[Rfam]
Source information: The family of this 171-nucleotide part of an RNA from Monosporascus sp. CRB-9-2 is "Ascomycota telomerase RNA". The family's RNA type in Rfam is non-coding RNA gene. Taxonomically the source falls in Monosporascus (Eukaryota, Fungi, Sordariomycetes, Xylariomycetidae). On this family, see Qi et al., Nucleic Acids Res 2013: "The common ancestral core of vertebrate and fungal telomerase RNAs". Gene Ontology terms of the family: telomerase catalytic core complex, telomerase activity and telomere maintenance via telomerase. The base pairs follow the family's consensus structure.
RNA sequence: ACUUUCGACGAUUACCCCUGCGGUAGUCGGCGGAACUUCCUCAUCUCUACCAGCAAUGGACUGAGAAGAGACGACGAGUGCGGUUUUUACCGACGUCUUUUGAUCGCACGCAUCCGCCCUCCUUGCCGCCUCAUGGGCCCGACGGAGAGGAAUCAAAAACUAGUCUGCGUU
Numbered sequence: 001a002c003u004u005u006c007g008a009c010g011a012u013u014a015c016c017c018c019u020g021c022g023g024u025a026g027u028c029g030g031c032g033g034a035a036c037u038u039c040c041u042c043a044u045c046u047c048u049a050c051c052a053g054c055a056a057u058g059g060a061c062u063g064a065g066a067a068g069a070g071a072c073g074a075c076g077a078g079u080g081c082g083g084u085u086u087u088u089a090c091c092g093a094c095g096u097c098u099u100u101u102g103a104u105c106g107c108a109c110g111c112a113u114c115c116g117c118c119c120u121c122c123u124u125g126c127c128g129c130c131u132c133a134u135g136g137g138c139c140c141g142a143c144g145g146a147g148a149g150g151a152a153u154c155a156a157a158a159a160c161u162a163g164u165c166u167g168c169g170u171u
Base pairs, nucleotide, nucleotide: 004034005033006032009029010028011027012026014024015023016022038074039073040070041069042068044066045065046064047063052057092165093164094163095160096159098158099157100156101155102154103153117150118149119147120146121145122144128143130141